[Rfam]
RNA sequence: AACGACCGGCCGGAUACUCGCGUCCAAACGCAAGGAACCGGCCCACAAGUGGAGGCUCCGCUUCCCACCUGACCGCUCCCCGGAGCGGCGGGUCACCGGUCAGGCGGCCAUAGUCCCCGAGACUACGGGCCCGCCCGAGUUGCGCCCCGCGAUCACCGCGGAGGUGCUCCGGUAGUAAUGGAGCCCCUUCCUGUGAUCGGCCGGGGCAUUUUUU
Numbered sequence: 001a002a003c004g005a006c007c008g009g010c011c012g013g014a015u016a017c018u019c020g021c022g023u024c025c026a027a028a029c030g031c032a033a034g035g036a037a038c039c040g041g042c043c044c045a046c047a048a049g050u051g052g053a054g055g056c057u058c059c060g061c062u063u064c065c066c067a068c069c070u071g072a073c074c075g076c077u078c079c080c081c082g083g084a085g086c087g088g089c090g091g092g093u094c095a096c097c098g099g100u101c102a103g104g105c106g107g108c109c110a111u112a113g114u115c116c117c118c119g120a121g122a123c124u125a126c127g128g129g130c131c132c133g134c135c136c137g138a139g140u141u142g143c144g145c146c147c148c149g150c151g152a153u154c155a156c157c158g159c160g161g162a163g164g165u166g167c168u169c170c171g172g173u174a175g176u177a178a179u180g181g182a183g184c185c186c187c188u189u190c191c192u193g194u195g196a197u198c199g200g201c202c203g204g205g206g207c208a209u210u211u212u213u214u
Stems, first nucleotide, its partner, number of pairs: 004101006012039002040094005046071002049068004053063002073088006103135005111125005144207006150199003157195003160190005166184005